[Rfam]
RNA sequence: CGAGCAUAAUGAUGAUACAUAAAUUAGUCCGAUUCUUCAUGAAGAAUAACAACCUCCUACUCAUUCUGA
Dot-bracket structure: .....((.(..................(.(..........)..)................).)).....
Numbered sequence: 001c002g003a004g005c006a007u008a009a010u011g012a013u014g015a016u017a018c019a020u021a022a023a024u025u026a027g028u029c030c031g032a033u034u035c036u037u038c039a040u041g042a043a044g045a046a047u048a049a050c051a052a053c054c055u056c057c058u059a060c061u062c063a064u065u066c067u068g069a
Stems, first nucleotide, its partner, number of pairs: 006064002009061001028044001030041001
This 69-nucleotide RNA sequence from Anisodus acutangulus belongs to the Rfam family "Small nucleolar RNA Z105". Taxonomically the source falls in Anisodus (Eukaryota, Viridiplantae, Magnoliopsida, Solanales). For this family Rfam cites "The high diversity of snoRNAs in plants: identification and comparative study of 120 snoRNA genes from Oryza sativa" (Chen et al., Nucleic Acids Res, 2003). Rfam links the family to the GO terms RNA processing and nucleolus. Pairs were carried over by alignment from the consensus structure, which was predicted with CMfinder.